RNA sequence: UACAUCCUUCGGGGCAGGGUGAAAUUCCCUACCGGCGGUGAUGGCGUGUGAAUAGAUGGCGCCUUAGCCCGUGACCCGCUUUUAGCGGUGGAUUCGGUGAAACUCCGGAGCCGACAGUAUAGUCUGGAUGGGAGAAGGAUGAU
Numbered sequence: 001u002a003c004a005u006c007c008u009u010c011g012g013g014g015c016a017g018g019g020u021g022a023a024a025u026u027c028c029c030u031a032c033c034g035g036c037g038g039u040g041a042u043g044g045c046g047u048g049u050g051a052a053u054a055g056a057u058g059g060c061g062c063c064u065u066a067g068c069c070c071g072u073g074a075c076c077c078g079c080u081u082u083u084a085g086c087g088g089u090g091g092a093u094u095c096g097g098u099g100a101a102a103c104u105c106c107g108g109a110g111c112c113g114a115c116a117g118u119a120u121a122g123u124c125u126g127g128a129u130g131g132g133a134g135a136a137g138g139a140u141g142a143u
Stems, first nucleotide, its partner, number of pairs: 003141008017029003031123002033113002035072004067111002076088002093109005115126003

Notes:
This 143-nucleotide RNA from Baia soyae belongs to the Rfam family "FMN riboswitch aptamer (RFN element)". Taxonomically the source falls in Baia (Bacteria, Bacillota, Bacilli, Thermoactinomycetaceae). Rfam links the family to the GO term FMN binding.